Rfam assigns this 299-nucleotide RNA sequence from Oreochromis aureus to the family "Metazoan signal recognition particle RNA". Rfam classes the family as a non-coding RNA gene. Rfam's curators write: The signal recognition particle (SRP) is a universally conserved ribonucleoprotein. The base pairs follow the family's consensus structure, which is taken from published work. For this family Rfam cites "Structural and energetic analysis of RNA recognition by a universally conserved protein from the signal recognition particle" (Batey et al., J Mol Biol, 2001). Its Rfam clan is "SRP clan".
[Rfam]
Nucleotides: 299
Stems, first nucleotide, its partner, number of pairs: 001045003004023007028042003047297008059286005067276001069274005078269003082265002085262004090257001093255001095253002098250001103248007110238002113236005119229001122226006128167002131164001133162005139156007168174002176219004186211001188209002194203001
Number, partner (000 for none) and nucleotide at each position: 001045g002044c003043c004023g005022g006021g007020u008019g009018c010017g011000g012000u013000g014000g015000c016000g017010c018009g019008c020007g021006c022005c023004u024000g025000u026000a027000a028042u029041c030040c031000a032000a033000g034000c035000u036000a037000c038000c039000g040030g041029g042028a043003g044002g045001c046000u047297g048296a049295g050294g051293c052292u053291g054290g055000c056000g057000g058000a059286u060285c061284g062283u063282u064000u065000g066000a067276g068000g069274u070273c071272a072271g073270g074000a075000g076000c077000u078269c079268u080267g081000a082265g083264c084000g085262g086261c087260a088259g089000g090257g091000g092000a093255c094000g095253a096252u097000g098250c099000c100000g101000a102000u103248c104247g105246g106245g107244u108243g109242u110238c111237c112000g113236c114235a115234c116233u117232a118000a119229g120000u121000u122226c123225g124224g125223c126222a127221u128167c129166g130000c131164u132000a133162u134161g135160g136159u137158g138000c139156u140155c141154c142153u143152g144151g145150g146000g147000g148000c149000g150145c151144u152143c153142g154141g155140g156139a157000c158137c159136a160135c161134c162133a163000g164131g165000u166129c167128g168174c169173c170000u171000c172000a173169g174168g175000a176219g177218g178217g179216g180000g181000g182000c183000a184000c185000c186211g187000g188209c189208c190000a191000a192000g193000g194203u195000a196000a197000a198000a199000c200000a201000a202000a203194g204000a205000g206000c207000a208189g209188g210000g211186c212000a213000a214000a215000g216179c217178c218177c219176c220000c221127g222126u223125g224124c225123c226122g227000c228000u229119c230000a231000g232117u233116a234115g235114u236113g237111g238110g239000a240000u241000c242109g243108c244107g245106c246105c247104u248103g249000u250098g251000a252096a253095u254000a255093g256000a257090c258000g259088c260087u261086g262085u263000a264083g265082u266000g267080c268079a269078g270073c271072c272071u273070g274069a275000g276067u277000a278000a279000u280000a281000c282063a283062g284061c285060g286059g287000g288000a289000c290054c291053c292052a293051g294050u295049c296048u297047u298000u299000u